[Rfam]
Shown here is an 89-nucleotide sequence from Saliterribacillus persicus, a member of the family "c-di-GMP-I riboswitch aptamer".
A reference for the family is Weinberg et al. (2007), "Identification of 22 candidate structured RNAs in bacteria using the CMfinder comparative genomics pipeline", Nucleic Acids Res.
The organism belongs to Saliterribacillus, within Bacteria.
RNA sequence: AAUAGAAAAAGGCAAACUAUUUGAAAAAAUAGGACGCAAAGCUAAUGGGUCUAAGGAUAAAUUUUAUCUACGAUCGCCUGGCUACCUAA
Numbered sequence: 001a002a003u004a005g006a007a008a009a010a011g012g013c014a015a016a017c018u019a020u021u022u023g024a025a026a027a028a029a030u031a032g033g034a035c036g037c038a039a040a041g042c043u044a045a046u047g048g049g050u051c052u053a054a055g056g057a058u059a060a061a062u063u064u065u066a067u068c069u070a071c072g073a074u075c076g077c078c079u080g081g082c083u084a085c086c087u088a089a
Stems, first nucleotide, its partner, number of pairs: 012037002017032006040083004045079001047078002049074003056068004